[Rfam]
RNA sequence: GGGGACCUCCGGGGCCCUAAACACCGGCAGCCCUCCGGGGCCGCACGAAGCAAACGGAAGACAGAAA
Numbered sequence: 001g002g003g004g005a006c007c008u009c010c011g012g013g014g015c016c017c018u019a020a021a022c023a024c025c026g027g028c029a030g031c032c033c034u035c036c037g038g039g040g041c042c043g044c045a046c047g048a049a050g051c052a053a054a055c056g057g058a059a060g061a062c063a064g065a066a067a
Stems, first nucleotide, its partner, number of pairs: 001018004006014003027044002030041004
RNA: L2-Alphaproteobacteria ribosomal protein leader